[Rfam]
Rfam assigns this 279-nucleotide RNA from Catharus ustulatus to the family "Small Cajal body-specific RNA 7". The source organism's lineage runs through Eukaryota, Eumetazoa, Euteleostomi, Dipnotetrapodomorpha and Catharus.
RNA sequence: GGGAAGUGAUGACACAGAGAUAAUUGGCUGUGUUUGCAUGGAGUGUGUGAGCCAGGGCUGGGGUGGGGGGGUGUGUGUGUGUGUUUGAGGGGGAUGUUGGGGGCUCUCCUGGGGGCACUGAUGGCAGUGCUGAGCCAGGAGUGCAUCUGAGGCGUGUUGGGCACCUCUGGGGCCCCUCUGCAACACUGCCAGUGAUUAAAGCCCCAAAAAAAACCCACCAGGAGAGCCCCAGGCAGCCAAAUCUCUCAGGGUCACCAGUGGUCCUGUGAUCUGAUCUCA
Numbered sequence: 001g002g003g004a005a006g007u008g009a010u011g012a013c014a015c016a017g018a019g020a021u022a023a024u025u026g027g028c029u030g031u032g033u034u035u036g037c038a039u040g041g042a043g044u045g046u047g048u049g050a051g052c053c054a055g056g057g058c059u060g061g062g063g064u065g066g067g068g069g070g071g072u073g074u075g076u077g078u079g080u081g082u083g084u085u086u087g088a089g090g091g092g093g094a095u096g097u098u099g100g101g102g103g104c105u106c107u108c109c110u111g112g113g114g115g116c117a118c119u120g121a122u123g124g125c126a127g128u129g130c131u132g133a134g135c136c137a138g139g140a141g142u143g144c145a146u147c148u149g150a151g152g153c154g155u156g157u158u159g160g161g162c163a164c165c166u167c168u169g170g171g172g173c174c175c176c177u178c179u180g181c182a183a184c185a186c187u188g189c190c191a192g193u194g195a196u197u198a199a200a201g202c203c204c205c206a207a208a209a210a211a212a213a214c215c216c217a218c219c220a221g222g223a224g225a226g227c228c229c230c231a232g233g234c235a236g237c238c239a240a241a242u243c244u245c246u247c248a249g250g251g252u253c254a255c256c257a258g259u260g261g262u263c264c265u266g267u268g269a270u271c272u273g274a275u276c277u278c279a
Base pairs, nucleotide, nucleotide: 001278002277003276004275155185156184157183158182159181160175161174164171165170